The record is an 87-nucleotide RNA from Paenibacillus thalictri, which matches "c-di-GMP-I-GGC riboswitch aptamer" in Rfam.
RNA sequence: AUGGAAAAAGGCAAAACUGUCGAAAGGCAGUGAAGCAAAACCACGGGUCUUCUCACUAUUCAAGUGAUGACCGCCGGGCUAGCCAAU
Number, nucleotide and partner (000 for none) at each position: 001a087002u000003g084004g083005a000006a000007a000008a000009a000010g000011g036012c035013a000014a000015a000016a031017c030018u029019g028020u027021c026022g000023a000024a000025a000026g021027g020028c019029a018030g017031u016032g000033a000034a000035g012036c011037a000038a000039a080040a000041c078042c077043a000044c076045g075046g074047g071048u070049c069050u000051u000052c000053u000054c000055a000056c000057u000058a000059u000060u000061c000062a000063a000064g000065u000066g000067a000068u000069g049070a048071c047072c000073g000074c046075c045076g044077g042078g041079c000080u039081a000082g000083c004084c003085a000086a000087u001
NCBI's taxonomy places the organism under Bacteria, Bacillati, Bacillota, Caryophanales, Paenibacillus. The match comes from Rfam's covariance-model search (61 bits).